[Rfam]
Source information
The family of this 85-nucleotide RNA from Medicago truncatula is "MIR2617 microRNA precursor family". Rfam 15.1 lists 1,174 matches to the family in 2 species.
RNA sequence: AUGUAGUGUAGCAUGCCCGUAUGUGAAGUACUCUGAUGAAUAUUUGUUAUUUAAUUGUUUUUGGGUAACGGGGUGUUACAUUCUU
Numbered sequence: 001a002u003g004u005a006g007u008g009u010a011g012c013a014u015g016c017c018c019g020u021a022u023g024u025g026a027a028g029u030a031c032u033c034u035g036a037u038g039a040a041u042a043u044u045u046g047u048u049a050u051u052u053a054a055u056u057g058u059u060u061u062u063g064g065g066u067a068a069c070g071g072g073g074u075g076u077u078a079c080a081u082u083c084u085u
Base pairs, nucleotide, nucleotide: 003084005082006081007080008079009078010077011076012075013074014073016072017071018070019069020068
Pairs were carried over by alignment from the consensus structure, which was predicted with RNAalifold.